The record is a 66-nucleotide RNA sequence, which matches "potC RNA" in Rfam. By type it is a cis-regulatory element.

RNA sequence: AAUAAAAUGCUCACAGUUAAUAAUUAGGAUUUUUACCCUUUCCUAAUAAACUGUGAGCAUUCAAUA
Number, nucleotide and partner (000 for none) at each position: 001a000002a000003u000004a000005a000006a061007a060008u059009g058010c057011u056012c055013a054014c053015a052016g000017u000018u050019a000020a000021u000022a000023a000024u000025u045026a044027g043028g042029a041030u000031u000032u000033u000034u000035a000036c000037c000038c000039u000040u000041u029042c028043c027044u026045a025046a000047u000048a000049a000050a018051c000052u015053g014054u013055g012056a011057g010058c009059a008060u007061u006062c000063a000064a000065u000066a000

It is one of the family's seed sequences.